Record summary:
Rfam assigns this 135-nucleotide RNA from Galemys pyrenaicus to the family "Small nucleolar RNA SNORA68". Rfam's curators write: U68 is a member of the H/ACA class of small nucleolar RNAs (snoRNAs) which act as guides in the the modification of uridines to pseudouridines. A reference for the family is Ganot et al. (1997), "The family of box ACA small nucleolar RNAs is defined by an evolutionarily conserved secondary structure and ubiquitous sequence elements essential for RNA accumulation", Genes Dev. Its family is annotated with nucleolus and RNA processing in the Gene Ontology. A search with the family's covariance model found it, with a score of 128 bits. Lineage of the source: Eukaryota > Opisthokonta > Euteleostomi > Sarcopterygii > Galemys.
RNA sequence: CAAGCACCCAAACCCAAGAACCGCUGUUUAAACCAUAGCAGUGGUUUAAAUAGAGGUGCUGACAGCAGUCGGAUCUCGUCGCCUUUGGGGGGCUGUGACUGUGCCCCUGAAAGUGAAUUUGGAGGUCCUACACCC
Numbered sequence: 001c002a003a004g005c006a007c008c009c010a011a012a013c014c015c016a017a018g019a020a021c022c023g024c025u026g027u028u029u030a031a032a033c034c035a036u037a038g039c040a041g042u043g044g045u046u047u048a049a050a051u052a053g054a055g056g057u058g059c060u061g062a063c064a065g066c067a068g069u070c071g072g073a074u075c076u077c078g079u080c081g082c083c084u085u086u087g088g089g090g091g092g093c094u095g096u097g098a099c100u101g102u103g104c105c106c107c108u109g110a111a112a113g114u115g116a117a118u119u120u121g122g123a124g125g126u127c128c129u130a131c132a133c134c135c
Base pairs, nucleotide, nucleotide: 003060004059005058006057007056008055019046020045021044022043023042024041025040026039027038028037071128072127073126074125075124076123077122083113084112085111086110088108089107090106091105092104093103